[Rfam]
RNA: U5 spliceosomal RNA
Organism: Pleurotus djamor
RNA sequence: GGCGACUGGGCGUUUCUCAACCAAACUAUCCCCUCGCCUUUUACUAGGGGAUACCGUGGGAGACGCCACUCAAUGUCGCAUUAGCCAAUUUUUCAGCACUCAGUACCAUCUGAGCC
Numbered sequence: 001g002g003c004g005a006c007u008g009g010g011c012g013u014u015u016c017u018c019a020a021c022c023a024a025a026c027u028a029u030c031c032c033c034u035c036g037c038c039u040u041u042u043a044c045u046a047g048g049g050g051a052u053a054c055c056g057u058g059g060g061a062g063a064c065g066c067c068a069c070u071c072a073a074u075g076u077c078g079c080a081u082u083a084g085c086c087a088a089u090u091u092u093u094c095a096g097c098a099c100u101c102a103g104u105a106c107c108a109u110c111u112g113a114g115c116c
Stems, first nucleotide, its partner, number of pairs: 003078004009067011027053008096116001099114005